[Rfam]
RNA: Streptomyces RNA 5676
Organism: Streptomyces sp. DSM 40868
RNA sequence: CGAUGAGAGAUACACCCCGCCCACGGGGGACCGUGGACGGAUCCGGGCCGAGGCCUCCCCAGCUUCGAUCCGGUCGUGCCCUCGCGCACACAUCCGGUGCCUCCCGGCUCCGGGAUCUCCUCACCGAUCGGA
Numbered sequence: 001c002g003a004u005g006a007g008a009g010a011u012a013c014a015c016c017c018c019g020c021c022c023a024c025g026g027g028g029g030a031c032c033g034u035g036g037a038c039g040g041a042u043c044c045g046g047g048c049c050g051a052g053g054c055c056u057c058c059c060c061a062g063c064u065u066c067g068a069u070c071c072g073g074u075c076g077u078g079c080c081c082u083c084g085c086g087c088a089c090a091c092a093u094c095c096g097g098u099g100c101c102u103c104c105c106g107g108c109u110c111c112g113g114g115a116u117c118u119c120c121u122c123a124c125c126g127a128u129c130g131g132a
Stems, first nucleotide, its partner, number of pairs: 004123004009119002017040003021036006043073005049067006076089004094113004099108003124131002